RNA sequence: UCGCCAGCGGGAGGCUAUGACACGCGGCCCAUACUCUGGCCGCCCGGACCGCGCCGAGCCACUGGCGAGACCGACCCGUUGGAUC
Numbered sequence: 001u002c003g004c005c006a007g008c009g010g011g012a013g014g015c016u017a018u019g020a021c022a023c024g025c026g027g028c029c030c031a032u033a034c035u036c037u038g039g040c041c042g043c044c045c046g047g048a049c050c051g052c053g054c055c056g057a058g059c060c061a062c063u064g065g066c067g068a069g070a071c072c073g074a075c076c077c078g079u080u081g082g083a084u085c
Stems, first nucleotide, its partner, number of pairs: 004082008013060003023053005029047001038072002041067004
About this RNA:
A member of the RNA family "c-di-GMP-II-GAG riboswitch aptamer", 85 nucleotides long. Rfam's curators put it in the seed alignment. Pairs were carried over by alignment from the consensus structure, which is taken from published work. The literature on the family includes a 2017 paper in Proc Natl Acad Sci U S A by Weinberg et al., "Bioinformatic analysis of riboswitch structures uncovers variant classes with altered ligand specificity".